The record is a 143-nucleotide sequence from Alpinimonas psychrophila, which matches "FMN riboswitch aptamer (RFN element)" in Rfam. A search with the family's covariance model found it, with a score of 90 bits. The source organism's lineage runs through Bacteria, Bacillati, Actinomycetota, Micrococcales and Alpinimonas.
[Rfam]
RNA sequence: AACGCGCUCCGGGGUCAGUGUAAAUCUGUACCGGUGGUGAUAGUCCACGACCCUCGAUCUUCAUCCAACAGGAUGCGGUGAAGAGGUUGAUUCGGUGAAAAUCCGAGACCGACGGUUAAAGUCCGGAUGGGAGGAAGCGCGCG
Numbered sequence: 001a002a003c004g005c006g007c008u009c010c011g012g013g014g015u016c017a018g019u020g021u022a023a024a025u026c027u028g029u030a031c032c033g034g035u036g037g038u039g040a041u042a043g044u045c046c047a048c049g050a051c052c053c054u055c056g057a058u059c060u061u062c063a064u065c066c067a068a069c070a071g072g073a074u075g076c077g078g079u080g081a082a083g084a085g086g087u088u089g090a091u092u093c094g095g096u097g098a099a100a101a102u103c104c105g106a107g108a109c110c111g112a113c114g115g116u117u118a119a120a121g122u123c124c125g126g127a128u129g130g131g132a133g134g135a136a137g138c139g140c141g142c143g
Stems, first nucleotide, its partner, number of pairs: 003141006009134002016028003030122002032111002034048004043109002052086004091107005113125003